RNA sequence: AAGCAAGGAACACACACACUAAUAUACCGCCGCAUCGUGUGGCAACGUCUGUGUAACCCACAUCCUGUGGG
Numbered sequence: 001a002a003g004c005a006a007g008g009a010a011c012a013c014a015c016a017c018a019c020u021a022a023u024a025u026a027c028c029g030c031c032g033c034a035u036c037g038u039g040u041g042g043c044a045a046c047g048u049c050u051g052u053g054u055a056a057c058c059c060a061c062a063u064c065c066u067g068u069g070g071g
Stems, first nucleotide, its partner, number of pairs: 011053004018048002029043005057071005
RNA: Bacillaceae-1 RNA